RNA sequence: AUGAACCUUCGGGGCAGGGUGAAAUUCCCGACCGGCGGUGACAUUGCGCAGCAAUGGAGCCCGCGACUCGUCUUCUGAGAACGUCUGUAGACGACUGAUUUGGUGAAAUUCCAAAGCCGACGGUAUAGUCCGGAUGGGAGAAGGUGAAG
Number, nucleotide and partner (000 for none) at each position: 001a000002u000003g000004a000005a145006c144007c143008u142009u141010c140011g000012g000013g000014g000015c000016a000017g029018g028019g027020u000021g000022a000023a000024a000025u000026u000027c019028c018029c017030g000031a129032c128033c119034g118035g064036c063037g062038g061039u000040g000041a000042c000043a000044u000045u000046g000047c000048g000049c000050a000051g000052c000053a000054a000055u000056g000057g000058a000059g117060c116061c038062c037063g036064c035065g000066a000067c000068u094069c093070g092071u091072c090073u000074u000075c000076u000077g000078a000079g000080a000081a000082c000083g000084u000085c000086u000087g000088u000089a000090g072091a071092c070093g069094a068095c000096u000097g000098a000099u115100u114101u113102g112103g111104u000105g000106a000107a000108a000109u000110u000111c103112c102113a101114a100115a099116g060117c059118c034119g033120a000121c132122g131123g130124u000125a000126u000127a000128g032129u031130c123131c122132g121133g000134a000135u000136g000137g000138g000139a000140g010141a009142a008143g007144g006145u005146g000147a000148a000149g000
The family of this 149-nucleotide sequence from Alicyclobacillus sp. SO9 is "FMN riboswitch aptamer (RFN element)". The source organism's lineage runs through Bacteria, Bacillati, Bacillota, Caryophanales and Alicyclobacillus.